[Rfam]
Notes:
Rfam assigns this 71-nucleotide RNA sequence from Bremerella alba to the family "int-alpA RNA". Rfam's curators write: Acidobacteria (1 example), Planctomycetes (1 example), Proteobacteria. The organism belongs to Bremerella, within Bacteria. It scores 38 bits against the family's covariance model. The base pairs follow the family's consensus structure, which is taken from published work.

RNA sequence: AAGCUGGCUAGGGCCGAUCACCUGAAGAGCGGACUUCCUGACCGCCUGCCUGCUUUUUCUUUCGCUCAGGA
Numbered sequence: 001a002a003g004c005u006g007g008c009u010a011g012g013g014c015c016g017a018u019c020a021c022c023u024g025a026a027g028a029g030c031g032g033a034c035u036u037c038c039u040g041a042c043c044g045c046c047u048g049c050c051u052g053c054u055u056u057u058u059c060u061u062u063c064g065c066u067c068a069g070g071a
Stems, first nucleotide, its partner, number of pairs: 001055004006050003011023003029045004036071006